[Rfam]
RNA sequence: ACCGGAUAAAGGCAAACUUGUCGAAAGACAAGGACGCAAAGCCACGGGCCUAAGCUAUAAACUAUGGUAGCCGGGUUGUCGAA
Number, nucleotide and partner (000 for none) at each position: 001a000002c000003c000004g000005g000006a000007u000008a000009a000010a000011g000012g037013c036014a000015a000016a000017c032018u031019u030020g029021u028022c027023g000024a000025a000026a000027g022028a021029c020030a019031a018032g017033g000034a000035c000036g013037c012038a000039a000040a077041g076042c075043c074044a000045c073046g072047g071048g068049c067050c066051u000052a000053a000054g000055c000056u061057a000058u000059a000060a000061a056062c000063u000064a000065u000066g050067g049068u048069a000070g000071c047072c046073g045074g043075g042076u041077u040078g000079u000080c000081g000082a000083a000
c-di-GMP-I riboswitch aptamer: an 83-nucleotide RNA from Calderihabitans maritimus. It scores 81 bits against the family's covariance model. Its family is annotated with cyclic-di-GMP binding in the Gene Ontology. The family's consensus secondary structure is taken from published work.